This 76-nucleotide RNA from Alligator mississippiensis belongs to the Rfam family "Mammalian CPEB3 ribozyme".
NCBI's taxonomy places the organism under Eukaryota, Craniata, Sarcopterygii, Amniota, Alligator.
RNA sequence: UGCUCAGUAUACAGGCCACAGCAGAAACGCCCAUGGCAUGGCCUUGUCAGAUUCCAUCGAAUCUGCAGAUUCUGCU
Dot-bracket structure: .............[[[[..((((((((.(.......).)]]]]....(((((((....)))))))....)))))))
Numbered sequence: 001u002g003c004u005c006a007g008u009a010u011a012c013a014g015g016c017c018a019c020a021g022c023a024g025a026a027a028c029g030c031c032c033a034u035g036g037c038a039u040g041g042c043c044u045u046g047u048c049a050g051a052u053u054c055c056a057u058c059g060a061a062u063c064u065g066c067a068g069a070u071u072c073u074g075c076u
Stems, first nucleotide, its partner, number of pairs: 014043004020076007027039001029037001048065007